[Rfam]
RNA sequence: UUAGUGGCUCAUUCACCCUGUUAUGAUAGCCCUGCGUAAGCGGACAAGCGCUUCAUAAAACUUCGAAUGACGCACGAUACGGUGCCUGCCGUCCAUCAAACCGAUAACAGAUCACUUUGUGACUUUAUCAAGCUUCGGACGCAACGUUGAGUUAGGCACCACCUCUUCUUUUGCGAUGACCUCUUAUCAUCGUGAUAUAAACGGCAGGCUCGUUGAGUCUGCCGUUUUCUU
Numbered sequence: 001u002u003a004g005u006g007g008c009u010c011a012u013u014c015a016c017c018c019u020g021u022u023a024u025g026a027u028a029g030c031c032c033u034g035c036g037u038a039a040g041c042g043g044a045c046a047a048g049c050g051c052u053u054c055a056u057a058a059a060a061c062u063u064c065g066a067a068u069g070a071c072g073c074a075c076g077a078u079a080c081g082g083u084g085c086c087u088g089c090c091g092u093c094c095a096u097c098a099a100a101c102c103g104a105u106a107a108c109a110g111a112u113c114a115c116u117u118u119g120u121g122a123c124u125u126u127a128u129c130a131a132g133c134u135u136c137g138g139a140c141g142c143a144a145c146g147u148u149g150a151g152u153u154a155g156g157c158a159c160c161a162c163c164u165c166u167u168c169u170u171u172u173g174c175g176a177u178g179a180c181c182u183c184u185u186a187u188c189a190u191c192g193u194g195a196u197a198u199a200a201a202c203g204g205c206a207g208g209c210u211c212g213u214u215g216a217g218u219c220u221g222c223c224g225u226u227u228u229c230u231u
Stems, first nucleotide, its partner, number of pairs: 001077002007073002009070004019057002027050001081160007091140004103129004200226011
About this RNA
The record is a 231-nucleotide RNA from [Pantoea] beijingensis, which matches "GlmZ RNA activator of glmS mRNA" in Rfam. NCBI's taxonomy places the organism under Bacteria, Pseudomonadati, Pseudomonadota, Gammaproteobacteria, Erwinia. A search with the family's covariance model found it, with a score of 73 bits. For this family Rfam cites "Novel small RNA-encoding genes in the intergenic regions of Escherichia coli" (Argaman et al., Curr Biol, 2001). The family's consensus secondary structure is taken from published work. This RNA was discovered in E. coli during a large scale screen. The sraJ gene was expressed in early logarithmic phase, but its level decreased with cell growth.